[Rfam]
RNA sequence: GGCCGGGAGGGCGACGGAUACAAGACCCGCAAGGGGAAGAAGUCCGCCUGACUUGUCUCAGGUUCUUAACCUCCCGGCCGCCUCGUG
Numbered sequence: 001g002g003c004c005g006g007g008a009g010g011g012c013g014a015c016g017g018a019u020a021c022a023a024g025a026c027c028c029g030c031a032a033g034g035g036g037a038a039g040a041a042g043u044c045c046g047c048c049u050g051a052c053u054u055g056u057c058u059c060a061g062g063u064u065c066u067u068a069a070c071c072u073c074c075c076g077g078c079c080g081c082c083u084c085g086u087g
Stems, first nucleotide, its partner, number of pairs: 001079009013044003026035003046063005

A member of the RNA family "sRNA-Xcc1" from Acidovorax sp. HDW3, 87 nucleotides long.
The base pairs follow the family's consensus structure, which was predicted with RNAalifold.
For this family Rfam cites "sRNA-Xcc1, an integron-encoded transposon- and plasmid-transferred trans-acting sRNA, is under the positive control of the key virulence regulators HrpG and HrpX of Xanthomonas campestris pathovar campestris" (Chen et al., RNA Biol, 2011).